[Rfam]
RNA sequence: GGCCCGGAACAGGCUCUGGAGCCGAACAGGUCGCGGGUUUUUGUUUGACAACAUACCGCCUGGAUCUACGGACCGGGACGGAAGG
Numbered sequence: 001g002g003c004c005c006g007g008a009a010c011a012g013g014c015u016c017u018g019g020a021g022c023c024g025a026a027c028a029g030g031u032c033g034c035g036g037g038u039u040u041u042u043g044u045u046u047g048a049c050a051a052c053a054u055a056c057c058g059c060c061u062g063g064a065u066c067u068a069c070g071g072a073c074c075g076g077g078a079c080g081g082a083a084g085g
Stems, first nucleotide, its partner, number of pairs: 001023003004019005056081003059077005065072002
A member of the RNA family "pan motif" from Geothermobacter hydrogeniphilus, 85 nucleotides long. Pairs were carried over by alignment from the consensus structure, which is taken from published work.